[Rfam]
RNA sequence: GGAUGUUCUGAAGACCUGCUCUCUAGGCCACGCACGGAGGACAGCAGUUCCUCAUGGGCCUCACGCCCGCCUAGGGGAAAGUCCCCGGACCGCCGGCAGAGAGUGCCGGGCGCUGCCCGCGCCCCCGCCCGCCCCCGCCUCACGCACCCCGCCGAGACGCCCCCGGGCCGAGCGGCUGAGCGCGGGGCGGGCUCUCGUCACGGCCACAGACACGCAGGUAGUGCGCAGGCGCACUAACAGAACGGGGCUCACUCUCAGGUCAUC
Numbered sequence: 001g002g003a004u005g006u007u008c009u010g011a012a013g014a015c016c017u018g019c020u021c022u023c024u025a026g027g028c029c030a031c032g033c034a035c036g037g038a039g040g041a042c043a044g045c046a047g048u049u050c051c052u053c054a055u056g057g058g059c060c061u062c063a064c065g066c067c068c069g070c071c072u073a074g075g076g077g078a079a080a081g082u083c084c085c086c087g088g089a090c091c092g093c094c095g096g097c098a099g100a101g102a103g104u105g106c107c108g109g110g111c112g113c114u115g116c117c118c119g120c121g122c123c124c125c126c127g128c129c130c131g132c133c134c135c136c137g138c139c140u141c142a143c144g145c146a147c148c149c150c151g152c153c154g155a156g157a158c159g160c161c162c163c164c165g166g167g168c169c170g171a172g173c174g175g176c177u178g179a180g181c182g183c184g185g186g187g188c189g190g191g192c193u194c195u196c197g198u199c200a201c202g203g204c205c206a207c208a209g210a211c212a213c214g215c216a217g218g219u220a221g222u223g224c225g226c227a228g229g230c231g232c233a234c235u236a237a238c239a240g241a242a243c244g245g246g247g248c249u250c251a252c253u254c255u256c257a258g259g260u261c262a263u264c
Stems, first nucleotide, its partner, number of pairs: 002264004007259005014219006022075007037053005080249002083247004095107004108124006126191001128189001133187006140180001149175004159168003221234005